[Rfam]
RNA sequence: ACCACUGAGCCAUCUCUCCAGCCCCUCAAGUGUUUCUUUUAAAAAAAGGUAAUAAAAGAAAACAAGAGGGGCUGGUGAGAUGGCUCAGUGGU
Numbered sequence: 001a002c003c004a005c006u007g008a009g010c011c012a013u014c015u016c017u018c019c020a021g022c023c024c025c026u027c028a029a030g031u032g033u034u035u036c037u038u039u040u041a042a043a044a045a046a047a048g049g050u051a052a053u054a055a056a057a058g059a060a061a062a063c064a065a066g067a068g069g070g071g072c073u074g075g076u077g078a079g080a081u082g083g084c085u086c087a088g089u090g091g092u
Stems, first nucleotide, its partner, number of pairs: 002091015018075010